A member of the RNA family "RNA S.aureus Orsay G" from Staphylococcus carnosus, 154 nucleotides long. It is annotated as a small RNA.
RNA sequence: GUAACUAGGAGAUAGCACUGAUGUAACAAAGGGGUAAUGAUAAAUCAUAGUCGUGUGAUUUAUUAAAAACGUGCAAAUCACUAGUUAAUAAACAUCUUCAAUAUUAUUACUUACUUUCCUUUCUAUGCCGACUAGUAUCGCUAGUCGGUUUUUU
Dot-bracket structure: .[[[[.........[[..[........(((((((....(.((.............)).).........].]]...........]]]]............................)))))))....(((((((((.....))))))))).....